[Rfam]
Rfam assigns this 114-nucleotide RNA sequence from Bacillus sp. FJAT-49711 to the family "SAM riboswitch aptamer (S box leader)". Rfam links the family to the GO term regulation of gene expression.
RNA sequence: CUCUUAUAAAGAGAGGUGGAGGGACUGGCCCGUUGAAACCUCGGCAACCAUUGAAUAUUCUUUUAUUCAAACGGUGCCAAUUCCAGCAGAUUUUAAUGAUCUGACAGAUAAGAG
Numbered sequence: 001c002u003c004u005u006a007u008a009a010a011g012a013g014a015g016g017u018g019g020a021g022g023g024a025c026u027g028g029c030c031c032g033u034u035g036a037a038a039c040c041u042c043g044g045c046a047a048c049c050a051u052u053g054a055a056u057a058u059u060c061u062u063u064u065a066u067u068c069a070a071a072c073g074g075u076g077c078c079a080a081u082u083c084c085a086g087c088a089g090a091u092u093u094u095a096a097u098g099a100u101c102u103g104a105c106a107g108a109u110a111a112g113a114g
Stems, first nucleotide, its partner, number of pairs: 001114007013042005021031003025086004043078004048074002051070006082106001087103006

Record summary:
Clan: SAM clan.